[Rfam]
RNA sequence: GGAAUGUUCUUUUUUAUUUUAUUCCUUUCAUCAUCUCAAACAUAACCUCUCAUCCAGGAAUUUUGCCAAGAUUUAAUAAAUCAAUUGUCUUGCUUAACCCUUAUAUAAAAAGCAAAUCUUUUUUAAUUAGACACAAAUAAUAUCGGCACAACAGGUUGCUAUAAAAUUAAUGCAUAAAUUUUAUCCUUGAAAACCAUUGCUAUG
Numbered sequence: 001g002g003a004a005u006g007u008u009c010u011u012u013u014u015u016a017u018u019u020u021a022u023u024c025c026u027u028u029c030a031u032c033a034u035c036u037c038a039a040a041c042a043u044a045a046c047c048u049c050u051c052a053u054c055c056a057g058g059a060a061u062u063u064u065g066c067c068a069a070g071a072u073u074u075a076a077u078a079a080a081u082c083a084a085u086u087g088u089c090u091u092g093c094u095u096a097a098c099c100c101u102u103a104u105a106u107a108a109a110a111a112g113c114a115a116a117u118c119u120u121u122u123u124u125a126a127u128u129a130g131a132c133a134c135a136a137a138u139a140a141u142a143u144c145g146g147c148a149c150a151a152c153a154g155g156u157u158g159c160u161a162u163a164a165a166a167u168u169a170a171u172g173c174a175u176a177a178a179u180u181u182u183a184u185c186c187u188u189g190a191a192a193a194c195c196a197u198u199g200c201u202a203u204g
Base pairs, nucleotide, nucleotide: 001186002185003184016034017033021028038175041172042171043170057144058143065089067087068086070082071081072080073079074078099130106125107124108123109122110121111120112119146159147158148157

Source information: The family of this 204-nucleotide RNA is "Cyanobacterial functional RNA 21". Rfam classes the family as a small RNA.